[Rfam]
RNA: Alphaproteobacterial sRNA ar9
Organism: Rhizobium oryziradicis
RNA sequence: ACAAAAGAGGCAGAAAGCUUAAAUUUCUGUCGAACUCGCGGUAAAGUCUUGGGAGGAUCAGAUCUUAGGCGCGCUUUGUCGCAGCCCCUUAAUUGGUUAAAGGUCACGCGAAAAUUGCAGAACAAGGUCUUCGGACCUUGUUUUUUUUU
Numbered sequence: 001a002c003a004a005a006a007g008a009g010g011c012a013g014a015a016a017g018c019u020u021a022a023a024u025u026u027c028u029g030u031c032g033a034a035c036u037c038g039c040g041g042u043a044a045a046g047u048c049u050u051g052g053g054a055g056g057a058u059c060a061g062a063u064c065u066u067a068g069g070c071g072c073g074c075u076u077u078g079u080c081g082c083a084g085c086c087c088c089u090u091a092a093u094u095g096g097u098u099a100a101a102g103g104u105c106a107c108g109c110g111a112a113a114a115u116u117g118c119a120g121a122a123c124a125a126g127g128u129c130u131u132c133g134g135a136c137c138u139u140g141u142u143u144u145u146u147u148u149u
Base pairs, nucleotide, nucleotide: 003149004148005147006146011029012028013027014026015025016024037110038109039108040107046058047057048056049055061105062104063103064102065101068086069085070084071082072081073080087096088095121142122141123140124139125138126137127136128135